[Rfam]
RNA sequence: CUCCACCUUCAGGGCAAAGUGAGAAUCUGUUAAUAUUACGGAAUGAACGGCAGAUUCAAUUCUUGACCGGCGGUAUAGUCCGCGAACCUCGUAUAAGAGGCCGAUUGGGUUUGACUCCCAAACCGACAGUAUAGUCUGGAUGAAAGAAGUGUAGGC
Dot-bracket structure: ..(.((((((......(((..........................................))).[[((((((....[[))))...((..........))....(((((.......)))))]])).(((....]]))).......)))).)).)..
The family of this 156-nucleotide RNA sequence from [Bacteroides] pectinophilus is "FMN riboswitch aptamer (RFN element)".
A search with the family's covariance model found it, with a score of 83 bits.
Rfam's curators write: The RFN element is a highly conserved domain that is found frequently in the 5'-untranslated regions of prokaryotic mRNAs that encode for flavin mononucleotide (FMN) biosynthesis and transport proteins.